The record is a 127-nucleotide RNA from Nannospalax galili, which matches "Small nucleolar RNA SNORA1" in Rfam. The family has 29 seed sequences and 1,282 matches in Rfam 15.1. About the family: ACA1 is a member of the H/ACA class of snoRNA that guide the sites of modification of uridines to pseudouridines. It scores 115 bits against the family's covariance model. Rfam links the family to the GO terms RNA processing and nucleolus.
[Rfam]
Nucleotides: 127
Base pairs, nucleotide, nucleotide: 002060003059004058006056021043022042023041025039026038027037070120071119072118073117074116080106081105082104083103084102085101
Number, partner (000 for none) and nucleotide at each position: 001000a002060g003059c004058c005000u006056c007000a008000c009000u010000c011000u012000g013000c014000a015000u016000g017000a018000g019000a020000a021043u022042g023041g024000c025039c026038a027037c028000u029000g030000c031000u032000u033000g034000u035000c036000a037027g038026u039025g040000u041023c042022c043021a044000g045000a046000a047000u048000u049000g050000g051000u052000c053000a054000a055000c056006g057000u058004g059003g060002c061000u062000a063000a064000a065000u066000u067000g068000a069000g070120a071119c072118a073117g074116g075000u076000u077000a078000u079000g080106c081105a082104u083103c084102a085101c086000a087000g088000u089000a090000a091000g092000u093000g094000u095000a096000c097000u098000a099000c100000a101085g102084u103083g104082g105081u106080g107000a108000c109000a110000a111000u112000g113000a114000g115000a116074c117073c118072u119071g120070u121000a122000a123000c124000a125000u126000u127000u